[Rfam]
RNA sequence: AAAAUGACAUUGAUAGGGACAGUAAUUAUUAUCAAUACUUAUUUUAGCGAUUCGAGAAUGGUGGGAGCUCGAUAUAAGUGAUAGUAAUGAAAAUCACCCUUGAGUUCCGUGCUGAACGAUUUCAGUAAGCAUAGGCGAAUACAUUCUCGUUACGAAUGAUUAAGUGGACUAUUAUUUAGUCUAUUAGGGUGGUACCGCGGGAAAACCUUCUCGUCCCUUUU
Numbered sequence: 001a002a003a004a005u006g007a008c009a010u011u012g013a014u015a016g017g018g019a020c021a022g023u024a025a026u027u028a029u030u031a032u033c034a035a036u037a038c039u040u041a042u043u044u045u046a047g048c049g050a051u052u053c054g055a056g057a058a059u060g061g062u063g064g065g066a067g068c069u070c071g072a073u074a075u076a077a078g079u080g081a082u083a084g085u086a087a088u089g090a091a092a093a094u095c096a097c098c099c100u101u102g103a104g105u106u107c108c109g110u111g112c113u114g115a116a117c118g119a120u121u122u123c124a125g126u127a128a129g130c131a132u133a134g135g136c137g138a139a140u141a142c143a144u145u146c147u148c149g150u151u152a153c154g155a156a157u158g159a160u161u162a163a164g165u166g167g168a169c170u171a172u173u174a175u176u177u178a179g180u181c182u183a184u185u186a187g188g189g190u191g192g193u194a195c196c197g198c199g200g201g202a203a204a205a206c207c208u209u210c211u212c213g214u215c216c217c218u219u220u221u
Stems, first nucleotide, its partner, number of pairs: 007105002015100004025088006040076003052072005107134001109132005136149003167181005186218004197214005

The family of this 221-nucleotide sequence from Litchfieldia stipae is "T-box leader".
On this family, see Grundy et al., RNA 2000: "tRNA determinants for transcription antitermination of the Bacillus subtilis tyrS gene".
By type it is a cis-regulatory leader.
Uncharged tRNA acts as the effector for transcription antitermination of genes in the T-box leader family. T-boxes are found upstream of many aminoacyl-tRNA synthetase genes and some amino acid biosynthetic genes usually in Gram-positive bacteria. The anticodon of a specific tRNA base pairs to a specifier sequence within the T-box motif, and the NCCA acceptor tail of the tRNA base pairs to a conserved bulge in the T-box antiterminator hairpin.